Notes
The family of this 226-nucleotide RNA from Dispira parvispora is "Protozoan signal recognition particle RNA". By type it is a non-coding RNA gene. The base pairs follow the family's consensus structure, which is taken from published work. Its family is annotated with signal recognition particle, endoplasmic reticulum targeting and SRP-dependent cotranslational protein targeting to membrane, signal sequence recognition in the Gene Ontology. The family is grouped with related families in Rfam's "SRP clan". NCBI's taxonomy places the organism under Eukaryota, Opisthokonta, Kickxellomycota, Kickxellomycotina, Dispira.
RNA sequence: AUUGCUAUUAGCAUCUGUGCAGGUUGAAGGCGAACAGACGAUGGUGGUUUAGUGCCCUUGUAAGUGGGAUUUGUCUCUUUGGAAUGGGGAGUUUGGCAUUGGCUAUGAAGUGUAAACAGCAUAGUCGAUUCCAUUAAAGCAGAGGGAAAUGCGUCAAGGCUGGCAACAGAGCAGCGAAAACCUCACGCUCCAUCAUGGUCAGGAGAUUGCAAGUCCUACGCUGUGC
Numbered sequence: 001a002u003u004g005c006u007a008u009u010a011g012c013a014u015c016u017g018u019g020c021a022g023g024u025u026g027a028a029g030g031c032g033a034a035c036a037g038a039c040g041a042u043g044g045u046g047g048u049u050u051a052g053u054g055c056c057c058u059u060g061u062a063a064g065u066g067g068g069a070u071u072u073g074u075c076u077c078u079u080u081g082g083a084a085u086g087g088g089g090a091g092u093u094u095g096g097c098a099u100u101g102g103c104u105a106u107g108a109a110g111u112g113u114a115a116a117c118a119g120c121a122u123a124g125u126c127g128a129u130u131c132c133a134u135u136a137a138a139g140c141a142g143a144g145g146g147a148a149a150u151g152c153g154u155c156a157a158g159g160c161u162g163g164c165a166a167c168a169g170a171g172c173a174g175c176g177a178a179a180a181c182c183u184c185a186c187g188c189u190c191c192a193u194c195a196u197g198g199u200c201a202g203g204a205g206a207u208u209g210c211a212a213g214u215c216c217u218a219c220g221c222u223g224u225g226c
Base pairs, nucleotide, nucleotide: 012019013018056223067216068215069214070213071212072211073210074209075205076204078203079202080201081200082199084196085195086193088191089190090189091188092187094133095132096131098129099128100127101126102125103124104123105122106121107120110117111116135139142184143183144182145181150178152176153175154174160169161168162167